[Rfam]
RNA sequence: UCUGUGGGUUAGGUAGUUCCAUGUUGUUGGGCUCUGCCUCCCAAACACAACAACAUCCAACUCCCUGGUUCACUGC
Numbered sequence: 001u002c003u004g005u006g007g008g009u010u011a012g013g014u015a016g017u018u019c020c021a022u023g024u025u026g027u028u029g030g031g032c033u034c035u036g037c038c039u040c041c042c043a044a045a046c047a048c049a050a051c052a053a054c055a056u057c058c059a060a061c062u063c064c065c066u067g068g069u070u071c072a073c074u075g076c
Stems, first nucleotide, its partner, number of pairs: 004073010015062004022055008031046001
RNA: mir-196 microRNA precursor family
Organism: Polioptila caerulea